[Rfam]
S-element: a 67-nucleotide RNA from Paenirhizobium daejeonense. The literature on the family includes a 2004 paper in Mol Microbiol by Venkova-Canova et al., "Two discrete elements are required for the replication of a repABC plasmid: an antisense RNA and a stem-loop structure". Lineage of the source: Bacteria > Pseudomonadati > Alphaproteobacteria > Hyphomicrobiales > Paenirhizobium. By type it is a cis-regulatory element. Gene Ontology terms of the family: translation regulator activity and mRNA transcription. About the family: This family represents a group of S-elements from p42d and related plasmids. The S-element has multiple functions and is believed to act as a negative regulator of repC transcription, be required for efficient replication and act as a translational enhancer of repC.
RNA sequence: AGUCAAGAGUCUUUGGCAUCUUUUGGUGAGUUGAUUUCUUUUGCCUUUUGAAAGGUGAUUGAAAAUG
Dot-bracket structure: .........((..(..((((((((((.(.((.((.....)).)).).)))))))))))..)).....
Numbered sequence: 001a002g003u004c005a006a007g008a009g010u011c012u013u014u015g016g017c018a019u020c021u022u023u024u025g026g027u028g029a030g031u032u033g034a035u036u037u038c039u040u041u042u043g044c045c046u047u048u049u050g051a052a053a054g055g056u057g058a059u060u061g062a063a064a065a066u067g
Stems, first nucleotide, its partner, number of pairs: 010062002014058001017057010028046001030044002033041002